[Rfam]
RNA sequence: UGGCCACAGAUAAAAAAAAUAAUCUGAUUACUUGAUCUGAUUACUUGAUGGAUUAAAGGAUAUUCUGAGGCCA
Numbered sequence: 001u002g003g004c005c006a007c008a009g010a011u012a013a014a015a016a017a018a019a020u021a022a023u024c025u026g027a028u029u030a031c032u033u034g035a036u037c038u039g040a041u042u043a044c045u046u047g048a049u050g051g052a053u054u055a056a057a058g059g060a061u062a063u064u065c066u067g068a069g070g071c072c073a
Stems, first nucleotide, its partner, number of pairs: 002072004
RNA: Small nucleolar RNA SNORD93
Organism: Crypturellus undulatus